[Rfam]
RNA sequence: AAUUCGUCACAACGGCUUCCUGACGUGGCGACAAACAAUACCGGAGCA
Numbered sequence: 001a002a003u004u005c006g007u008c009a010c011a012a013c014g015g016c017u018u019c020c021u022g023a024c025g026u027g028g029c030g031a032c033a034a035a036c037a038a039u040a041c042c043g044g045a046g047c048a
Base pairs, nucleotide, nucleotide: 004031005030006029007028008027009026010025013022014021015047016046017045019044020043
RNA: SAM/SAH riboswitch aptamer